[Rfam]
Shown here is a 59-nucleotide RNA sequence from Brasilonema sennae, a member of the family "Nitrogen stress-induced RNA 1". Rfam 15.1 lists 962 matches to the family in 163 species. The family's RNA type in Rfam is small RNA.
RNA sequence: UGGUAGAUGCACCUUGAUCUUUACUCCCAUGUAGGCUAACACCUUUUGGGAGUUUUUCU
Numbered sequence: 001u002g003g004u005a006g007a008u009g010c011a012c013c014u015u016g017a018u019c020u021u022u023a024c025u026c027c028c029a030u031g032u033a034g035g036c037u038a039a040c041a042c043c044u045u046u047u048g049g050g051a052g053u054u055u056u057u058c059u
Base pairs, nucleotide, nucleotide: 002013003012004011025051026050027049028048029047031045033044034043035042